The record is a 278-nucleotide RNA sequence from Streptomyces sp. M41(2017), which matches "Streptomyces sRNA 4677" in Rfam.
RNA sequence: GACGCGGUCGUACGCGACGCAAAAGAUCCCAAGUACCGGGGAGAGAACCCCUCCCAACCCCACCAGCCUCCCGUCGGUCGUCACAUCACCCGCAAGGGUGACAAUCGCCAACUGAGCUGGAUUCUCCGCACGUUGGGGGGCAUAUGCUCGCGGCGAACCACAACCGCAGCCGCACCAUCAGUGGGUGGGGCACGCACCACCGCGGACAUACGACGGCCCCCGGCCGGGACUGGCAUCCCGAUCGAGGGCCUCACCAACAAGGAAGCAACACCUUCCCG
Numbered sequence: 001g002a003c004g005c006g007g008u009c010g011u012a013c014g015c016g017a018c019g020c021a022a023a024a025g026a027u028c029c030c031a032a033g034u035a036c037c038g039g040g041g042a043g044a045g046a047a048c049c050c051c052u053c054c055c056a057a058c059c060c061c062a063c064c065a066g067c068c069u070c071c072c073g074u075c076g077g078u079c080g081u082c083a084c085a086u087c088a089c090c091c092g093c094a095a096g097g098g099u100g101a102c103a104a105u106c107g108c109c110a111a112c113u114g115a116g117c118u119g120g121a122u123u124c125u126c127c128g129c130a131c132g133u134u135g136g137g138g139g140g141c142a143u144a145u146g147c148u149c150g151c152g153g154c155g156a157a158c159c160a161c162a163a164c165c166g167c168a169g170c171c172g173c174a175c176c177a178u179c180a181g182u183g184g185g186u187g188g189g190g191c192a193c194g195c196a197c198c199a200c201c202g203c204g205g206a207c208a209u210a211c212g213a214c215g216g217c218c219c220c221c222g223g224c225c226g227g228g229a230c231u232g233g234c235a236u237c238c239c240g241a242u243c244g245a246g247g248g249c250c251u252c253a254c255c256a257a258c259a260a261g262g263a264a265g266c267a268a269c270a271c272c273u274u275c276c277c278g
Base pairs, nucleotide, nucleotide: 001255007075009073010072086101087100088099089098090097091096117188118180119179120178215250216249217248218247219246221244222243226239227238228237229236261276262275263274264273265272
Dot-bracket structure: (.....(.((.............................................................)).)..........((((((....))))))...............((((.........................................................))).......)..........................(((((.((...((((......))))...)).)))))....).....(((((......)))))..
Description: NCBI's taxonomy places the organism under Bacteria, Bacillati, Actinomycetes, Kitasatosporales, Streptomyces. It is annotated as a small RNA. Located in the intergenic region between anti-sigma factor SCO4677 gene and a putative regulatory protein gene SCO4676. scr4677 expression requires the SCO4677 activity and scr4677 sRNA itself seem to affect the levels of the SCO4676-associated transcripts. A search with the family's covariance model found it, with a score of 91 bits.